RNA sequence: AGCAAGAGGCAACUCCACCAAAAAAGAGUGAAGCGGCGGCGUUCAGUAAAACGCGGCCGGUAACC
Numbered sequence: 001a002g003c004a005a006g007a008g009g010c011a012a013c014u015c016c017a018c019c020a021a022a023a024a025a026g027a028g029u030g031a032a033g034c035g036g037c038g039g040c041g042u043u044c045a046g047u048a049a050a051a052c053g054c055g056g057c058c059g060g061u062a063a064c065c
Base pairs, nucleotide, nucleotide: 032061034059035058036057037056039054040053042050043049
RNA: DnaX ribosomal frameshifting element
Organism: Prodigiosinella confusarubida